[Rfam]
Annotation
Shown here is a 101-nucleotide sequence from Cetobacterium somerae, a member of the family "Purine riboswitch aptamer". The organism belongs to Cetobacterium somerae, within Bacteria. Pairs were carried over by alignment from the consensus structure, which is taken from published work. It scores 78 bits against the family's covariance model. Gene Ontology term of the family: purine nucleobase biosynthetic process.

RNA sequence: AAAAACAAAAUAAAUAAAACUUGUAUAAUAGUUGAAAUAAGGUCAACGAGUCUCUACCUGCCACCGUAAAUUGGCAGACUACAAGGAUAAAUUUUAAAUGU
Numbered sequence: 001a002a003a004a005a006c007a008a009a010a011u012a013a014a015u016a017a018a019a020c021u022u023g024u025a026u027a028a029u030a031g032u033u034g035a036a037a038u039a040a041g042g043u044c045a046a047c048g049a050g051u052c053u054c055u056a057c058c059u060g061c062c063a064c065c066g067u068a069a070a071u072u073g074g075c076a077g078a079c080u081a082c083a084a085g086g087a088u089a090a091a092u093u094u095u096a097a098a099u100g101u
Stems, first nucleotide, its partner, number of pairs: 020085006029049001031047005058077006